[Rfam]
Shown here is a 173-nucleotide RNA sequence from Acetobacterium paludosum, a member of the family "Lysine riboswitch aptamer".
About the family: Riboswitches are metabolite binding domains within certain messenger RNAs that serve as precision sensors for their corresponding targets.
Lineage of the source: Bacteria > Bacillati > Bacillota > Clostridia > Acetobacterium.
RNA sequence: AAAACUGAUAGAGGUGCGGUCUUUAUGACUAAUUACGUCAACCAUGGCAAAUGGGAUGAAGCGUAAUGAAAGGAAAGCUCGCCGAAGGAUUUUGAAUAGCCGUCAAAUUCCUGGGCUUACUGUUAAAAGCAGUAAGACUGUCAUCAUUCAACUGAUGGAGUGCUAUCUAAAAA
Numbered sequence: 001a002a003a004a005c006u007g008a009u010a011g012a013g014g015u016g017c018g019g020u021c022u023u024u025a026u027g028a029c030u031a032a033u034u035a036c037g038u039c040a041a042c043c044a045u046g047g048c049a050a051a052u053g054g055g056a057u058g059a060a061g062c063g064u065a066a067u068g069a070a071a072g073g074a075a076a077g078c079u080c081g082c083c084g085a086a087g088g089a090u091u092u093u094g095a096a097u098a099g100c101c102g103u104c105a106a107a108u109u110c111c112u113g114g115g116c117u118u119a120c121u122g123u124u125a126a127a128a129g130c131a132g133u134a135a136g137a138c139u140g141u142c143a144u145c146a147u148u149c150a151a152c153u154g155a156u157g158g159a160g161u162g163c164u165a166u167c168u169a170a171a172a173a
Base pairs, nucleotide, nucleotide: 007167008166009165010164011163016082017081018080019079021077022076023075024074032067033066034065035064036063037062038061086112087111088110089109091107092106093105094104095103113139114138116136117135118134119133120132121131122130123129141158142157143156144155145154146153